[Rfam]
Shown here is a 47-nucleotide RNA sequence from Allobosea thiooxidans, a member of the family "Guanidine-II riboswitch aptamer (mini-ykkC)". The organism belongs to Allobosea, within Bacteria. The base pairs follow the family's consensus structure, which is taken from published work.
RNA sequence: GCCUCGGGACGACCCGCGGCCUUCGCACUUCACAGGGGACGGCCCCA
Numbered sequence: 001g002c003c004u005c006g007g008g009a010c011g012a013c014c015c016g017c018g019g020c021c022u023u024c025g026c027a028c029u030u031c032a033c034a035g036g037g038g039a040c041g042g043c044c045c046c047a
Stems, first nucleotide, its partner, number of pairs: 001020003005016004035046004